U11 spliceosomal RNA: a 134-nucleotide RNA from Otolemur garnettii. The base pairs follow the family's consensus structure, which is taken from published work. The family's RNA type in Rfam is spliceosomal small nuclear RNA. A search with the family's covariance model found it, with a score of 89 bits.
RNA sequence: AAAGAGGGCUUCUGUUGUGAGUAGCACAUGUGGGGCAACUCAACUGCUCUUCAUGUGGAAGCGACAUCAAGACAUUUCAAAAGUAUAAUUUUUUGGUAUCUGGGCAGUUGGUGAUCAUUGAUCCUGGUGUCUGU
Number, nucleotide and partner (000 for none) at each position: 001a000002a000003a000004g000005a000006g000007g000008g084009c083010u082011u081012c000013u026014g025015u024016u023017g022018u000019g000020a000021g000022u017023a016024g015025c014026a013027c055028a054029u053030g052031u000032g050033g049034g048035g047036c046037a045038a000039c000040u000041c000042a000043a000044c000045u037046g036047c035048u034049c033050u032051u000052c030053a029054u028055g027056u079057g078058g077059a076060a075061g000062c000063g000064a000065c000066a000067u000068c000069a000070a000071g000072a000073c000074a000075u060076u059077u058078c057079a056080a000081a011082a010083g009084u008085a000086u000087a000088a000089u000090u000091u000092u000093u000094u000095g000096g000097u000098a000099u000100c000101u000102g132103g131104g130105c129106a000107g128108u127109u126110g125111g124112u000113g123114a122115u121116c120117a000118u000119u000120g116121a115122u114123c113124c111125u110126g109127g108128u107129g105130u104131c103132u102133g000134u000